[Rfam]
RNA sequence: GCCGGGCCCCGUCUGGAAGACUAGUGAUUUUGUUGUUCUCUAGCUGACCGCACGACAACAAAUCCCAGUCUGCCUGACGGUGCCCGGU
Numbered sequence: 001g002c003c004g005g006g007c008c009c010c011g012u013c014u015g016g017a018a019g020a021c022u023a024g025u026g027a028u029u030u031u032g033u034u035g036u037u038c039u040c041u042a043g044c045u046g047a048c049c050g051c052a053c054g055a056c057a058a059c060a061a062a063u064c065c066c067a068g069u070c071u072g073c074c075u076g077a078c079g080g081u082g083c084c085c086g087g088u
Stems, first nucleotide, its partner, number of pairs: 002086001004084001006083002009080005015074002018071005024066001026064005032059006
mir-7 microRNA precursor family: an 88-nucleotide RNA from Ornithorhynchus anatinus.
Its family is annotated with miRNA-mediated post-transcriptional gene silencing and RISC complex in the Gene Ontology.
Rfam's curators put it in the seed alignment.
On this family, see Ambros, Cell 2001: "microRNAs: tiny regulators with great potential".
The family has 132 seed sequences and 2,589 matches in Rfam 15.1.
Rfam describes the family as follows. This family represents the microRNA (miRNA) precursor mir-7.